The family of this 117-nucleotide RNA sequence from Hyphomonas neptunium is "ALIL pseudoknot". Pairs were carried over by alignment from the consensus structure, which is taken from published work. The sequence is in the family's curated seed alignment.
RNA sequence: AGCGUAUUUUGCUCAGGCGGAGCUCGACCGCCGACCGAAGACAUGAUCGCGUUCAUUGACGACCAUCGCGAUGUUUAUGGGGUCGAGCCGAUCUGCAGGGUAUUGCCGAUUGCCCCA
Numbered sequence: 001a002g003c004g005u006a007u008u009u010u011g012c013u014c015a016g017g018c019g020g021a022g023c024u025c026g027a028c029c030g031c032c033g034a035c036c037g038a039a040g041a042c043a044u045g046a047u048c049g050c051g052u053u054c055a056u057u058g059a060c061g062a063c064c065a066u067c068g069c070g071a072u073g074u075u076u077a078u079g080g081g082g083u084c085g086a087g088c089c090g091a092u093c094u095g096c097a098g099g100g101u102a103u104u105g106c107c108g109a110u111u112g113c114c115c116c117a
Base pairs, nucleotide, nucleotide: 016032017031018030019029020028078117079116080115081114082113089112090111092109093108095106096105097104098103
About this RNA: By type it is a cis-regulatory element.